[Rfam]
RNA sequence: CAGUGUAGUAGAGGUGCAGGCAACAAAAGUACUUUCAGGGAAGAGUGGUAUCAAUGAUCUGAAAGAAAAGGGUUGUCUGCCGAAGCGAUUGUGUCACCGGGACAUUUUCGCUGGUCUUGUAUAAAAUAUAUACAAGAUUGUCACCAUGUUACCUCAUGGUGGAGCGCUAUCUCACUA
Numbered sequence: 001c002a003g004u005g006u007a008g009u010a011g012a013g014g015u016g017c018a019g020g021c022a023a024c025a026a027a028a029g030u031a032c033u034u035u036c037a038g039g040g041a042a043g044a045g046u047g048g049u050a051u052c053a054a055u056g057a058u059c060u061g062a063a064a065g066a067a068a069a070g071g072g073u074u075g076u077c078u079g080c081c082g083a084a085g086c087g088a089u090u091g092u093g094u095c096a097c098c099g100g101g102a103c104a105u106u107u108u109c110g111c112u113g114g115u116c117u118u119g120u121a122u123a124a125a126a127u128a129u130a131u132a133c134a135a136g137a138u139u140g141u142c143a144c145c146a147u148g149u150u151a152c153c154u155c156a157u158g159g160u161g162g163a164g165c166g167c168u169a170u171c172u173c174a175c176u177a
Stems, first nucleotide, its partner, number of pairs: 008170004016080009032065008084112005091105005113139011141162007
Dot-bracket structure: .......((((....(((((((((.......((((((((..................))))))))......)))))))))...(((((..(((((.....)))))..)))))(((((((((((.....))))))))))).(((((((........)))))))....)))).......
Background: The record is a 177-nucleotide RNA from Anaerosporomusa subterranea, which matches "Lysine riboswitch aptamer" in Rfam. The base pairs follow the family's consensus structure, which is taken from published work. It scores 128 bits against the family's covariance model.